[Rfam]
RNA sequence: GAUAUUAAGUACGCAGCCUAAAAAGGCUGAUGGCUGGUGGUUUUAUACCUCCAGCCU
Dot-bracket structure: .............(((((......)))))..((((((.(((.....))).)))))).